[Rfam]
RNA sequence: AUAUGCACUGAGUGGCCAGAUAAUUAUGCAUUCAGAGAUCAUAAUAAUCUGGCCACUCGGUGUAUUU
Numbered sequence: 001a002u003a004u005g006c007a008c009u010g011a012g013u014g015g016c017c018a019g020a021u022a023a024u025u026a027u028g029c030a031u032u033c034a035g036a037g038a039u040c041a042u043a044a045u046a047a048u049c050u051g052g053c054c055a056c057u058c059g060g061u062g063u064a065u066u067u
Base pairs, nucleotide, nucleotide: 004064005063006062007061008060009059010058011057012056013055014054015053016052017051019049020048021047023045024044025043026042027041028040